RNA sequence: UGUUAUCUAGAAAUCAUAAGUUGUAGUUACUUUGUGAUACAAAUAGGUGGUAUAAUGAUUGUUCCUCUGCCACACGUGUACUGGCUUUAUGCUGUAUGAGUUCCAAAGAUCUACGAACAAUU
Dot-bracket structure: .(((((((....((((((((.((....)).))))))))......)))))))..............(((.....((.(((((.(((.....)))))))).)).....))).............
Numbered sequence: 001u002g003u004u005a006u007c008u009a010g011a012a013a014u015c016a017u018a019a020g021u022u023g024u025a026g027u028u029a030c031u032u033u034g035u036g037a038u039a040c041a042a043a044u045a046g047g048u049g050g051u052a053u054a055a056u057g058a059u060u061g062u063u064c065c066u067c068u069g070c071c072a073c074a075c076g077u078g079u080a081c082u083g084g085c086u087u088u089a090u091g092c093u094g095u096a097u098g099a100g101u102u103c104c105a106a107a108g109a110u111c112u113a114c115g116a117a118c119a120a121u122u
Stems, first nucleotide, its partner, number of pairs: 002051007013038008022029002066109003074101002077098005083093003
About this RNA: The record is a 122-nucleotide RNA sequence from Caenorhabditis briggsae, which matches "Caenorhabditis snoRNA ceN92" in Rfam. Gene Ontology terms of the family: RNA processing and nucleolus. Rfam 15.1 lists 21 matches to the family in 11 species. Rfam's curators put it in the seed alignment. The family's consensus secondary structure was predicted with RNAalifold.